The family of this 176-nucleotide RNA from Oceanotoga teriensis is "Lysine riboswitch aptamer".
The source organism's lineage runs through Bacteria, Thermotogati, Thermotogae, Petrotogaceae and Oceanotoga.
RNA sequence: AUAAAAAACGGAGGCGCAAUCGAGAAAAGUAAAAUCAUGGAGCAUUGAGAAAAGCUUUGAAAUGAUUUGAAAGGCGAGAUUGCCGAAGAAAAUAGAAUUCUCAAACUAUUUUUUGGGUGUAUGAUAAACAAUCAUACAACUGUCACGAAUCAAUUUCGUGGAGAGCCGUAAAAAUC
Numbered sequence: 001a002u003a004a005a006a007a008a009c010g011g012a013g014g015c016g017c018a019a020u021c022g023a024g025a026a027a028a029g030u031a032a033a034a035u036c037a038u039g040g041a042g043c044a045u046u047g048a049g050a051a052a053a054g055c056u057u058u059g060a061a062a063u064g065a066u067u068u069g070a071a072a073g074g075c076g077a078g079a080u081u082g083c084c085g086a087a088g089a090a091a092a093u094a095g096a097a098u099u100c101u102c103a104a105a106c107u108a109u110u111u112u113u114u115g116g117g118u119g120u121a122u123g124a125u126a127a128a129c130a131a132u133c134a135u136a137c138a139a140c141u142g143u144c145a146c147g148a149a150u151c152a153a154u155u156u157c158g159u160g161g162a163g164a165g166c167c168g169u170a171a172a173a174a175u176c
Base pairs, nucleotide, nucleotide: 008169009168010167011166016083017082018081019080020079021078024075032068033067034066035065036064037063038062087114088113089112090111091110092109093108094107095106098103115141116140118138119137120136121135122134123133124132125131143161144160145159146158147157148156149155